[Rfam]
The record is a 182-nucleotide RNA from Atractosteus spatula, which matches "U2 spliceosomal RNA" in Rfam. The organism belongs to Atractosteus, within Eukaryota. The family's consensus secondary structure is taken from published work. U2 is a small nuclear RNA (snRNA) component of the spliceosome (involved in pre-mRNA splicing). The family has 208 seed sequences and 71,512 matches in Rfam 15.1.
RNA sequence: AUUUUUUGUCUUGUAUUCAUUAAAAAAAAUCUGUUCUUAUCAGUUUAAUAUCUGAUACGUCCCCCAUCCGGGGAUCACAUAUUAAACGUAUUUUUGGAACAGGGAGCUGGAUCAGGAGCUUGCUCUGUCCUCUCCACGCAUUGGCCCAGUAUUGCAGCGCCUCCGGGAACGGUGCACCACCU
Number, nucleotide and partner (000 for none) at each position: 001a009002u008003u000004u000005u000006u000007u000008g002009u001010c000011u000012u000013g000014u000015a000016u000017u000018c000019a000020u000021u000022a000023a000024a000025a000026a000027a000028a000029a000030u000031c000032u000033g000034u000035u000036c000037u000038u057039a056040u055041c054042a053043g052044u000045u000046u000047a000048a000049u000050a000051u000052c043053u042054g041055a040056u039057a038058c000059g075060u074061c073062c072063c071064c070065c000066a000067u000068c000069c000070g064071g063072g062073g061074a060075u059076c000077a000078c000079a000080u000081a000082u000083u000084a000085a000086a000087c000088g000089u000090a000091u000092u000093u000094u000095u000096g000097g000098a000099a000100c000101a000102g000103g135104g134105a133106g132107c000108u000109g129110g128111a000112u000113c000114a000115g126116g125117a124118g123119c000120u000121u000122g000123c118124u117125c116126u115127g000128u110129c109130c000131u000132c106133u105134c104135c103136a000137c000138g175139c174140a173141u172142u171143g170144g000145c167146c166147c165148a000149g163150u000151a000152u000153u000154g000155c000156a000157g000158c000159g000160c000161c000162u000163c149164c000165g147166g146167g145168a000169a000170c143171g142172g141173u140174g139175c138176a000177c000178c000179a000180c000181c000182u000

It scores 110 bits against the family's covariance model.